This 263-nucleotide sequence from Shouchella lonarensis belongs to the Rfam family "BsrG".
It is annotated as a small RNA.
From the family's description: bsrE, bsrG and bsrH pair through intermolecular interactions with antisense sRNAs. They form type I toxin/antitoxin system that includes an mRNA encoding for a short, toxic peptide (bsrE, bsrG and bsrH) and an antitoxin that is comprised of an antisense RNA. bsrG encodes a 39-amino-acid toxin, and the 180 nucleotide antisense sRNA called SR4 acts as the antitoxin (they overlap by 123 nucleotides). SR4 interaction with the 3'UTR of bsrG RNA promotes bsrG degradation and inhibits its translation. BsrG interferes with cell envelope biosynthesis, causes membrane invaginations and delocalisation of the cell wall synthesis and initiates autolysis. bsrE RNA encodes 30 amino-acid toxin peptide. Its antitoxin gene, SR5 overlaps by 112 nucleotides at the 3' end of bsrE. SR5 also overlaps bsrG from nucleotide 163 to 52 (Rfam overlap check). The antitoxin SR5 promotes bsrE degradation but unlike SR4 it does not directly inhibits toxin mRNA translation.

[Rfam]
RNA sequence: UGCGGUAACUAGGAUCUUUAAGGGUGGGCAGCAUCCCCUCUAGAAAGGGGGUGAUGCGCGAUGACGACAUUUCAAGCACUAGUGCUCAUGAUUGCAUUUGGUGGUUUGAUCGUAUCGGUCAUCGGUUUGUUGCAACAAGCCAACAAAUAAACCACCCUUGUAGCUGCCACGGCUGGUAGGGUGGUUUGAACUUGCUAGUAUAGGCUGUCCCUCUUAAAGGGAAUCCAGUUACGCGCGACCGUGGGUGCGCCCGAGCACCUGCG
Dot-bracket structure: ((((.(.(((.(..(.((((((((.(.....((.(((((......))))).)).........(((((.........((..........)).........((((((............))))))...)))))....................)..)))))).))...........................................)((((.......))))..).))).)))))....(((((((((......)))))))))